[Rfam]
RNA sequence: UGGCCUGCUUCUGAUUGGAAGACUAGUGAUUUUGUUGUUGUGGUGUAGAAAAGCGACAACAAAUCACAGCCUACCAUCCAGCAGGGG
Numbered sequence: 001u002g003g004c005c006u007g008c009u010u011c012u013g014a015u016u017g018g019a020a021g022a023c024u025a026g027u028g029a030u031u032u033u034g035u036u037g038u039u040g041u042g043g044u045g046u047a048g049a050a051a052a053g054c055g056a057c058a059a060c061a062a063a064u065c066a067c068a069g070c071c072u073a074c075c076a077u078c079c080a081g082c083a084g085g086g087g
Stems, first nucleotide, its partner, number of pairs: 004085003011081003016076003020072002023069002026067007034060006